[Rfam]
RNA sequence: UGCAGUUCUCGGGUGAUGCACCCUGGAACCAGAGAGGAGGGAGCCCGAUUCCGGGGUGCGUCACCUGAGAACCACC
Numbered sequence: 001u002g003c004a005g006u007u008c009u010c011g012g013g014u015g016a017u018g019c020a021c022c023c024u025g026g027a028a029c030c031a032g033a034g035a036g037g038a039g040g041g042a043g044c045c046c047g048a049u050u051c052c053g054g055g056g057u058g059c060g061u062c063a064c065c066u067g068a069g070a071a072c073c074a075c076c
Base pairs, nucleotide, nucleotide: 002075005072006071007070008069009068010067011066012065013064014063015062016061017060019058020057021056022055023054025052026051027050028049030047032045
RNA: mir-9223 microRNA precursor family